Shown here is a 100-nucleotide sequence from Maudiozyma saulgeensis, a member of the family "Small nucleolar RNA snR57". The organism belongs to Maudiozyma, within Eukaryota.
[Rfam]
RNA sequence: AUUAUUAUGAUUAUAAAAACUUAAGAUAUUUUAUAUCAUUUCUGAGGAAGUAUAUGCAGGAACCAAUUGUUAUUUAGGAAUUCUUCGUUUAUGAUUUAAU
Numbered sequence: 001a002u003u004a005u006u007a008u009g010a011u012u013a014u015a016a017a018a019a020c021u022u023a024a025g026a027u028a029u030u031u032u033a034u035a036u037c038a039u040u041u042c043u044g045a046g047g048a049a050g051u052a053u054a055u056g057c058a059g060g061a062a063c064c065a066a067u068u069g070u071u072a073u074u075u076a077g078g079a080a081u082u083c084u085u086c087g088u089u090u091a092u093g094a095u096u097u098a099a100u
Stems, first nucleotide, its partner, number of pairs: 001100004
The match comes from Rfam's covariance-model search (65 bits). It is annotated as a C/D-box small nucleolar RNA. The base pairs follow the family's consensus structure. Its family is annotated with nucleolus and RNA processing in the Gene Ontology. The literature on the family includes a 1999 paper in Science by Lowe and Eddy, "A computational screen for methylation guide snoRNAs in yeast".